The family of this 114-nucleotide RNA sequence from Musa balbisiana is "Plastid-psbA-1 3UTR RNA". Rfam describes the family as follows. Plastid psbA-1 is a non-coding RNA (ncRNA) present in plastids. Clan: Plastid-psbA 3UTR RNA clan. Lineage of the source: Eukaryota > Streptophyta > Streptophytina > Embryophyta > Musa.

RNA sequence: UCGAAGUUUCAUCUACAAAGGGAUAAGAUUUUGUCUGAGGGAUACGAAUCGUUUAAACAAGUUAGCACUACCCCAUGUCCUUGCUUUAGCAAGACAUGGGGUAUUUGCUACUUU
Number, nucleotide and partner (000 for none) at each position: 001u000002c000003g000004a000005a000006g000007u000008u023009u022010c021011a000012u019013c000014u000015a000016c000017a000018a000019a012020g000021g010022g009023a008024u000025a000026a000027g000028a000029u000030u000031u000032u000033g000034u000035c000036u000037g000038a000039g000040g000041g000042a000043u000044a000045c000046g000047a000048a000049u000050c000051g000052u000053u000054u000055a000056a000057a000058c000059a114060a113061g112062u000063u110064a109065g108066c107067a106068c000069u103070a102071c101072c000073c099074c098075a097076u000077g095078u094079c000080c093081u092082u091083g000084c000085u000086u000087u000088a000089g000090c000091a082092a081093g080094a078095c077096a000097u075098g074099g073100g000101g071102u070103a069104u000105u000106u067107g066108c065109u064110a063111c000112u061113u060114u059